The record is a 77-nucleotide RNA from Galemys pyrenaicus, which matches "Small nucleolar RNA ZL2" in Rfam.
RNA sequence: GGCCUCAGGUGAUGAAAAAUAAUGACCAGGGGACACUGUGACCAAACUGGGAUGUAUUCGUACUGUCUGAUGGGGCC
Numbered sequence: 001g002g003c004c005u006c007a008g009g010u011g012a013u014g015a016a017a018a019a020u021a022a023u024g025a026c027c028a029g030g031g032g033a034c035a036c037u038g039u040g041a042c043c044a045a046a047c048u049g050g051g052a053u054g055u056a057u058u059c060g061u062a063c064u065g066u067c068u069g070a071u072g073g074g075g076c077c
Base pairs, nucleotide, nucleotide: 001077002076003075004074005073006072007071011067012066013065014064019061020060021058022057023056024055026051027050029048030047
The organism belongs to Galemys, within Eukaryota. The family's consensus secondary structure was predicted with RNAfold. The family's RNA type in Rfam is C/D-box small nucleolar RNA.